[Rfam]
RNA: mir-8799 microRNA precursor family
Nucleotides: 089
Stems, first nucleotide, its partner, number of pairs: 002088005009081002012077002017075001019073003023069004027063003030058006039051001041050003
Number, partner (000 for none) and nucleotide at each position: 001000c002088g003087g004086g005085g006084g007000a008000g009081g010080c011000c012077g013076g014000a015000u016000c017075c018000u019073g020072g021071g022000c023069u024068g025067u026066g027063u028062c029061c030058c031057g032056g033055c034054g035053c036000c037000c038000u039051g040000u041050g042049c043048u044000c045000c046000c047000g048043g049042g050041c051039c052000u053035g054034c055033g056032u057031u058030g059000u060000u061029g062028g063027a064000u065000u066026u067025g068024c069023g070000c071021u072020c073019c074000c075017g076013c077012c078000c079000c080010g081009c082000a083000g084006c085005u086004c087003c088002c089000u